[Rfam]
RNA sequence: AAUGCAAAACUGCAUUGUCCAAUUCGACUUAUGCUUUACUGGUCAUUCAAGUAGAGCAAAGAAAAUAUCCUUUUAAAACUCAGAUAAACUUGGUGAUUGUCUUGGAUCCUGUCAGAGAAAACAAAU
Numbered sequence: 001a002a003u004g005c006a007a008a009a010c011u012g013c014a015u016u017g018u019c020c021a022a023u024u025c026g027a028c029u030u031a032u033g034c035u036u037u038a039c040u041g042g043u044c045a046u047u048c049a050a051g052u053a054g055a056g057c058a059a060a061g062a063a064a065a066u067a068u069c070c071u072u073u074u075a076a077a078a079c080u081c082a083g084a085u086a087a088a089c090u091u092g093g094u095g096a097u098u099g100u101c102u103u104g105g106a107u108c109c110u111g112u113c114a115g116a117g118a119a120a121a122c123a124a125a126u
Stems, first nucleotide, its partner, number of pairs: 032058005040049003068119001070117004081104001082102006089095001